[Rfam]
RNA: SAM (S-adenosyl methionine) riboswitch aptamer
RNA sequence: GGUCAUGAGUGUCAGCGAAAAGCCAUGGCCUGCGGCACGGCAACCCUCCCACGCGGCUGGGGUGCCCCAGGUGACGACCGGACCGAACGACGAUCGGUAAGCGCGAGGC
Numbered sequence: 001g002g003u004c005a006u007g008a009g010u011g012u013c014a015g016c017g018a019a020a021a022g023c024c025a026u027g028g029c030c031u032g033c034g035g036c037a038c039g040g041c042a043a044c045c046c047u048c049c050c051a052c053g054c055g056g057c058u059g060g061g062g063u064g065c066c067c068c069a070g071g072u073g074a075c076g077a078c079c080g081g082a083c084c085g086a087a088c089g090a091c092g093a094u095c096g097g098u099a100a101g102c103g104c105g106a107g108g109c
Base pairs, nucleotide, nucleotide: 001079002078003077004076009038013035015033016032022029039066040065041064044062045061046060048056049055082098083097084096085095086094088092